[Rfam]
RNA: azaaromatic riboswitch aptamer (yjdF RNA)
Organism: Hungatella hathewayi
RNA sequence: UAAGGCAAGGAUUAAAACACAGUCCCGGUUGGUAGUCCGGGCGCAGCUUCAAAAUCUGUCAGUAACCUGCCUCCUCGGUUGUCCGGUCUUUGCUGUCGAAAG
Numbered sequence: 001u002a003a004g005g006c007a008a009g010g011a012u013u014a015a016a017a018c019a020c021a022g023u024c025c026c027g028g029u030u031g032g033u034a035g036u037c038c039g040g041g042c043g044c045a046g047c048u049u050c051a052a053a054a055u056c057u058g059u060c061a062g063u064a065a066c067c068u069g070c071c072u073c074c075u076c077g078g079u080u081g082u083c084c085g086g087u088c089u090u091u092g093c094u095g096u097c098g099a100a101a102g
Stems, first nucleotide, its partner, number of pairs: 004094008022042002025040004043059004048054001069079003